This 76-nucleotide sequence from Lates calcarifer belongs to the Rfam family "U1A polyadenylation inhibition element (PIE)". Rfam's curators write: This family represents the U1A polyadenylation inhibition element (PIE). PIE is a regulatory RNA which is responsible for the regulation of the length of the polyA tail of the U1A pre-mRNA. The PIE is located in the U1A mRNA 3' UTR. PIE adopts a U-shaped structure, with binding sites for a single U1A protein at each bend and when complexed with the two proteins it blocks activity of poly(A) polymerase (PAP), and inhibits its activity. The family's consensus secondary structure is taken from published work. A search with the family's covariance model found it, with a score of 68 bits. On this family, see Varani et al., Nat Struct Biol 2000: "The NMR structure of the 38 kDa U1A protein - PIE RNA complex reveals the basis of cooperativity in regulation of polyadenylation by human U1A protein". The family has 39 seed sequences and 510 matches in Rfam 15.1.
[Rfam]
RNA sequence: UCCUAAAGCAUUGCACCCAGAGUCUGGUAUAUCAGACAUUGUACCUGGAGCUUUUUCCUUUUUUUAUAAUUAAAGC
Numbered sequence: 001u002c003c004u005a006a007a008g009c010a011u012u013g014c015a016c017c018c019a020g021a022g023u024c025u026g027g028u029a030u031a032u033c034a035g036a037c038a039u040u041g042u043a044c045c046u047g048g049a050g051c052u053u054u055u056u057c058c059u060u061u062u063u064u065u066a067u068a069a070u071u072a073a074a075g076c
Base pairs, nucleotide, nucleotide: 005054006053007052008051009050017048018047019046020045022037023036024035025034026033